Shown here is a 47-nucleotide sequence from Exaiptasia diaphana, a member of the family "Histone 3' UTR stem-loop".
A search with the family's covariance model found it, with a score of 42 bits.
The family's consensus secondary structure is taken from published work.
[Rfam]
RNA sequence: ACAACGGCUCUUUUAAGAGCCACCACAUAAUAUAAAAUCAAUGACAU
Numbered sequence: 001a002c003a004a005c006g007g008c009u010c011u012u013u014u015a016a017g018a019g020c021c022a023c024c025a026c027a028u029a030a031u032a033u034a035a036a037a038u039c040a041a042u043g044a045c046a047u
Stems, first nucleotide, its partner, number of pairs: 006021006